[Rfam]
RNA sequence: AUGGGGGAAACCCCAUACUCCUCACACACUAAAUCGCCCGAUUAUUCGGGCUUU
Numbered sequence: 001a002u003g004g005g006g007g008a009a010a011c012c013c014c015a016u017a018c019u020c021c022u023c024a025c026a027c028a029c030u031a032a033a034u035c036g037c038c039c040g041a042u043u044a045u046u047c048g049g050g051c052u053u054u
Stems, first nucleotide, its partner, number of pairs: 001016006036051006
Shown here is a 54-nucleotide sequence from Prochlorococcus marinus, a member of the family "Cyanobacterial functional RNA 1". By type it is a small RNA. The literature on the family includes a 2007 paper in BMC Genomics by Voss et al., "A motif-based search in bacterial genomes identifies the ortholog of the small RNA Yfr1 in all lineages of cyanobacteria". The source organism's lineage runs through Bacteria, Bacillati, Cyanophyceae, Prochlorococcaceae and Prochlorococcus marinus.